[Rfam]
RNA sequence: AGUAGAGAGGCCUUCCGAUGGCGGCUUUCCGGAGCAGCCAUCAAACCACCUUACGCUGCAUCUGGCGGAAACUCCGGUGUGGUGAACGGUUAAGGAAAAACGGGGACAGCGAUCCCUGUAGGU
Numbered sequence: 001a002g003u004a005g006a007g008a009g010g011c012c013u014u015c016c017g018a019u020g021g022c023g024g025c026u027u028u029c030c031g032g033a034g035c036a037g038c039c040a041u042c043a044a045a046c047c048a049c050c051u052u053a054c055g056c057u058g059c060a061u062c063u064g065g066c067g068g069a070a071a072c073u074c075c076g077g078u079g080u081g082g083u084g085a086a087c088g089g090u091u092a093a094g095g096a097a098a099a100a101c102g103g104g105g106a107c108a109g110c111g112a113u114c115c116c117u118g119u120a121g122g123u
Base pairs, nucleotide, nucleotide: 001013002012017042018041019040020039021038022037024035025034026033027032047122049095050094051093052092053091054089055083056082058080059079060078062076064074065073100119101118102117103116104115105114
RNA: Group II catalytic intron D1-D4-2